[Rfam]
RNA: Small nucleolar RNA R44/J54/Z268 family
Organism: Mikania micrantha
RNA sequence: CUUGCAAGUGAUGAUAAAAAGACAGGGACAUCAGAUCUUCAAAUUGGAGUAAUGAUUGACCAAGUCUAUAAUGGGAAUCUCUCUGAUGCAUU
Numbered sequence: 001c002u003u004g005c006a007a008g009u010g011a012u013g014a015u016a017a018a019a020a021g022a023c024a025g026g027g028a029c030a031u032c033a034g035a036u037c038u039u040c041a042a043a044u045u046g047g048a049g050u051a052a053u054g055a056u057u058g059a060c061c062a063a064g065u066c067u068a069u070a071a072u073g074g075g076a077a078u079c080u081c082u083c084u085g086a087u088g089c090a091u092u
Base pairs, nucleotide, nucleotide: 003090004089005088006087